Rfam assigns this 111-nucleotide RNA from Allorhizobium borbori to the family "Alphaproteobacterial ar15". Rfam 15.1 lists 316 matches to the family in 177 species.
[Rfam]
RNA sequence: AGCUGAUGCACAUGGCGACCUUCUCCCAAUGUCGCCGCAGCAGCUGUUCCCCUCUGGAGGUCACAGACCUUCAAACUUGAAAAGGGCCCUGGUUUCCAGUGGCCCUCUUUU
Numbered sequence: 001a002g003c004u005g006a007u008g009c010a011c012a013u014g015g016c017g018a019c020c021u022u023c024u025c026c027c028a029a030u031g032u033c034g035c036c037g038c039a040g041c042a043g044c045u046g047u048u049c050c051c052c053u054c055u056g057g058a059g060g061u062c063a064c065a066g067a068c069c070u071u072c073a074a075a076c077u078u079g080a081a082a083a084g085g086g087c088c089c090u091g092g093u094u095u096c097c098a099g100u101g102g103c104c105c106u107c108u109u110u111u
Stems, first nucleotide, its partner, number of pairs: 001045005007039003015035004055073007083106006089099004
Dot-bracket structure: (((((.(((.....((((.............)))).))).))))).........(((((((.....))))))).........((((((((((...)))).)))))).....
On this family, see del Val et al., RNA Biol 2012: "A survey of sRNA families in alpha-proteobacteria". Lineage of the source: Bacteria > Pseudomonadati > Alphaproteobacteria > Rhizobiaceae > Allorhizobium. A search with the family's covariance model found it, with a score of 104 bits.